Notes: TPP riboswitch aptamer (THI element): a 117-nucleotide RNA from Ruminococcaceae bacterium BL-4. It scores 62 bits against the family's covariance model. The source organism's lineage runs through Bacteria, Bacillota, Clostridia, Eubacteriales and Oscillospiraceae.
RNA sequence: GAAUCAAAGCAGGGGUGCUCCGUCCGAAAAAUCGGACGAUGCUGAGAGUGAACACAGUUCACAACCCUUUCGCCUGAUCCGGAUAAUACCGGCGGAGGUAGCAUUUUAUCAAGAUUU
Numbered sequence: 001g002a003a004u005c006a007a008a009g010c011a012g013g014g015g016u017g018c019u020c021c022g023u024c025c026g027a028a029a030a031a032u033c034g035g036a037c038g039a040u041g042c043u044g045a046g047a048g049u050g051a052a053c054a055c056a057g058u059u060c061a062c063a064a065c066c067c068u069u070u071c072g073c074c075u076g077a078u079c080c081g082g083a084u085a086a087u088a089c090c091g092g093c094g095g096a097g098g099u100a101g102c103a104u105u106u107u108a109u110c111a112a113g114a115u116u117u
Stems, first nucleotide, its partner, number of pairs: 006105002009102002011068004017042002021038006049061005073098003079092004